[Rfam]
RNA sequence: AUACUUACCUCGCAGGGAGAUACCAUGAUCACGAAGGUGGUUUUCCCAGGGUGAGGCUUAUCCAUUGCACUCUGGAUGUGCUGAACCCUGCGAUUUCCCCAAAUGUGGGAAACUCAACUGUAUAAUUUGUGGUAGUGGGGAACUCUGUUCAUGCUUUCCCCUA
Numbered sequence: 001a002u003a004c005u006u007a008c009c010u011c012g013c014a015g016g017g018a019g020a021u022a023c024c025a026u027g028a029u030c031a032c033g034a035a036g037g038u039g040g041u042u043u044u045c046c047c048a049g050g051g052u053g054a055g056g057c058u059u060a061u062c063c064a065u066u067g068c069a070c071u072c073u074g075g076a077u078g079u080g081c082u083g084a085a086c087c088c089u090g091c092g093a094u095u096u097c098c099c100c101a102a103a104u105g106u107g108g109g110a111a112a113c114u115c116a117a118c119u120g121u122a123u124a125a126u127u128u129g130u131g132g133u134a135g136u137g138g139g140g141a142a143c144u145c146u147g148u149u150c151a152u153g154c155u156u157u158c159c160c161c162u163a
Base pairs, nucleotide, nucleotide: 012121013120014119015118016046017045018044019043020042022041023040024039025038026037048089049088050087051086055082056081057080059078060077061076062075063074092115093114094112095111096110098108099107137161138160139159140158142157146153147152